[Rfam]
RNA sequence: AGUCAACUUUUCUCAGAAAAGUAUUUUGAGGGCCAGCAUGAAUAUUUUAUUUGAGAUAGCGCACUCCAUCUUUUCAAGAGAAAAGAGACCCAAGCGCUCGCAUGCCCUUAACGGAUUAGAUGAGAGGGUGGGCGAAAGUAGGUGAAAGUGACAGCACGAGACCUUCAAAACGAACCCUGCUGAAGGGUUCACGGCUAAGUCUAUAUAGAUAUGCCGAAACGUGCCGAGUAGGGUCAAACACACGACGAGGACCUAGACAAAGUUUUGAAAAAAACGACUUGUAGGGCGUGUUGAACGCAAGUAAAAAGUCUAGUUGUAAGCUGAAAUGCUUACAGAGUAAUCUAAUCC
Numbered sequence: 001a002g003u004c005a006a007c008u009u010u011u012c013u014c015a016g017a018a019a020a021g022u023a024u025u026u027u028g029a030g031g032g033c034c035a036g037c038a039u040g041a042a043u044a045u046u047u048u049a050u051u052u053g054a055g056a057u058a059g060c061g062c063a064c065u066c067c068a069u070c071u072u073u074u075c076a077a078g079a080g081a082a083a084a085g086a087g088a089c090c091c092a093a094g095c096g097c098u099c100g101c102a103u104g105c106c107c108u109u110a111a112c113g114g115a116u117u118a119g120a121u122g123a124g125a126g127g128g129u130g131g132g133c134g135a136a137a138g139u140a141g142g143u144g145a146a147a148g149u150g151a152c153a154g155c156a157c158g159a160g161a162c163c164u165u166c167a168a169a170a171c172g173a174a175c176c177c178u179g180c181u182g183a184a185g186g187g188u189u190c191a192c193g194g195c196u197a198a199g200u201c202u203a204u205a206u207a208g209a210u211a212u213g214c215c216g217a218a219a220c221g222u223g224c225c226g227a228g229u230a231g232g233g234u235c236a237a238a239c240a241c242a243c244g245a246c247g248a249g250g251a252c253c254u255a256g257a258c259a260a261a262g263u264u265u266u267g268a269a270a271a272a273a274a275c276g277a278c279u280u281g282u283a284g285g286g287c288g289u290g291u292u293g294a295a296c297g298c299a300a301g302u303a304a305a306a307a308g309u310c311u312a313g314u315u316g317u318a319a320g321c322u323g324a325a326a327u328g329c330u331u332a333c334a335g336a337g338u339a340a341u342c343u344a345a346u347c348c
Stems, first nucleotide, its partner, number of pairs: 007021006058098005069086004104129006113348009154224004172190006192216004199210004253313006262275004277302006314335007

Shown here is a 348-nucleotide RNA sequence, a member of the family "GEBRO RNA". Rfam's curators put it in the seed alignment.